The record is a 386-nucleotide RNA from Nonomuraea dietziae, which matches "transfer-messenger RNA" in Rfam.

RNA sequence: GGGGGUGAUCGGUUUCGACUUCGAUCUUUCAAUGCAGGUGAAGCGGGCCGAGGACUGCGGACAUAACCUCGUUAAUCCUGUGACCGCAAACCAAUAAGUGCCAACUCUAAGCGCACUGAGGUCAGCCAGGGUUCCCUGGCUCUCGCUGCCUAAGUAGCGAAACCUCUGUCAGCCCGAGCAUGCCUUCGGCCCGGGACCUGGCAUCGUUAGAAGGCUCCACCGCUCGACCCGGCCACGGGGGAGAGCGGGAAACCAAACAGUGGCUGAGCCUGUCGGCAACACGCCUGCGUGAGUGCCGGGGCUGAGAAAACGUUAAGCAGGCUGCGCCCGGAGAAGCCCUGCCUUGGGGUUGAAGGACGCGGGUUCGAUUCCCGCCACCUCCACAA
Numbered sequence: 001g002g003g004g005g006u007g008a009u010c011g012g013u014u015u016c017g018a019c020u021u022c023g024a025u026c027u028u029u030c031a032a033u034g035c036a037g038g039u040g041a042a043g044c045g046g047g048c049c050g051a052g053g054a055c056u057g058c059g060g061a062c063a064u065a066a067c068c069u070c071g072u073u074a075a076u077c078c079u080g081u082g083a084c085c086g087c088a089a090a091c092c093a094a095u096a097a098g099u100g101c102c103a104a105c106u107c108u109a110a111g112c113g114c115a116c117u118g119a120g121g122u123c124a125g126c127c128a129g130g131g132u133u134c135c136c137u138g139g140c141u142c143u144c145g146c147u148g149c150c151u152a153a154g155u156a157g158c159g160a161a162a163c164c165u166c167u168g169u170c171a172g173c174c175c176g177a178g179c180a181u182g183c184c185u186u187c188g189g190c191c192c193g194g195g196a197c198c199u200g201g202c203a204u205c206g207u208u209a210g211a212a213g214g215c216u217c218c219a220c221c222g223c224u225c226g227a228c229c230c231g232g233c234c235a236c237g238g239g240g241g242a243g244a245g246c247g248g249g250a251a252a253c254c255a256a257a258c259a260g261u262g263g264c265u266g267a268g269c270c271u272g273u274c275g276g277c278a279a280c281a282c283g284c285c286u287g288c289g290u291g292a293g294u295g296c297c298g299g300g301g302c303u304g305a306g307a308a309a310a311c312g313u314u315a316a317g318c319a320g321g322c323u324g325c326g327c328c329c330g331g332a333g334a335a336g337c338c339c340u341g342c343c344u345u346g347g348g349g350u351u352g353a354a355g356g357a358c359g360c361g362g363g364u365u366c367g368a369u370u371c372c373c374g375c376c377a378c379c380u381c382c383a384c385a386a
Stems, first nucleotide, its partner, number of pairs: 001382007019355010031345002034342005044330005049071005056088005062082001141162001143160007167203006173195004178190002181188001182215006220248006228240001231265006267303005274298003279294002283322004290315002359375005

The base pairs follow the family's consensus structure, which is taken from published work. It scores 165 bits against the family's covariance model.